[Rfam]
RNA sequence: AGAUCAUCAAGAGCGGUGGAGGGACUGGCCCUAUGAUACCCGGCAACCUACUUUUAAUUAGUAAGGUGCUAAUUCCAGCAUUUCCAAAAGAGAAAUGAUAGAUGAGAG
Numbered sequence: 001a002g003a004u005c006a007u008c009a010a011g012a013g014c015g016g017u018g019g020a021g022g023g024a025c026u027g028g029c030c031c032u033a034u035g036a037u038a039c040c041c042g043g044c045a046a047c048c049u050a051c052u053u054u055u056a057a058u059u060a061g062u063a064a065g066g067u068g069c070u071a072a073u074u075c076c077a078g079c080a081u082u083u084c085c086a087a088a089a090g091a092g093a094a095a096u097g098a099u100a101g102a103u104g105a106g107a108g
Base pairs, nucleotide, nucleotide: 004105005104006103007102008101013041015040016039017038021031022030023029025078026077027076028075042070043069044068045067047066048065049063050062051061052060074100079097080096081095082094083093084092
SAM riboswitch aptamer (S box leader): a 108-nucleotide RNA sequence from Halanaerobium praevalens. Its Rfam clan is "SAM clan". Rfam links the family to the GO term regulation of gene expression. On this family, see Grundy and Henkin, Mol Microbiol 1998: "The S box regulon: a new global transcription termination control system for methionine and cysteine biosynthesis genes in gram-positive bacteria". Lineage of the source: Bacteria > Clostridia > Halanaerobiaceae > Halanaerobium > Halanaerobium praevalens. About the family: The SAM riboswitch is found upstream of a number of genes which code for proteins involved in methionine or cysteine biosynthesis in Gram-positive bacteria.